[Rfam]
RNA sequence: UGGGCAUCAGUGAUGAGUUCAUAUAAAAUCGUUAUCCUUGCACUUUGAUUUGCAAUGAAGAAAUUAAUGGGGAUUUAUAUCUCUGAGAUGCUC
Numbered sequence: 001u002g003g004g005c006a007u008c009a010g011u012g013a014u015g016a017g018u019u020c021a022u023a024u025a026a027a028a029u030c031g032u033u034a035u036c037c038u039u040g041c042a043c044u045u046u047g048a049u050u051u052g053c054a055a056u057g058a059a060g061a062a063a064u065u066a067a068u069g070g071g072g073a074u075u076u077a078u079a080u081c082u083c084u085g086a087g088a089u090g091c092u093c
Stems, first nucleotide, its partner, number of pairs: 002093007